[Rfam]
The record is a 65-nucleotide RNA sequence from Sinocyclocheilus anshuiensis, which matches "Selenocysteine insertion sequence 1" in Rfam.
RNA sequence: UUUACUUCAUGAAGGUGCUCCUGUAAACAUACUUUGUCUGUGGGGAGCAUCUGAUGCCGUGCAAA
Number, nucleotide and partner (000 for none) at each position: 001u065002u064003u063004a000005c061006u000007u000008c000009a000010u000011g000012a000013a000014g051015g050016u049017g048018c047019u046020c045021c044022u043023g000024u000025a000026a000027a000028c000029a039030u000031a037032c000033u000034u000035u000036g000037u031038c000039u029040g000041u000042g000043g022044g021045g020046a019047g018048c017049a016050u015051c014052u000053g000054a000055u000056g000057c000058c000059g000060u000061g005062c000063a003064a002065a001

Record summary:
Rfam's curators write: The incorporation of selenocysteine into a protein sequence is directed by an in-frame UGA codon (usually a stop codon) within the coding region of the mRNA. Selenoprotein mRNAs contain a conserved secondary structure in the 3' UTR that is required for the distinction of UGA stop from UGA selenocysteine. Rfam 15.1 lists 3,793 matches to the family in 721 species. It is annotated as a cis-regulatory element. NCBI's taxonomy places the organism under Eukaryota, Bilateria, Actinopterygii, Actinopteri, Sinocyclocheilus.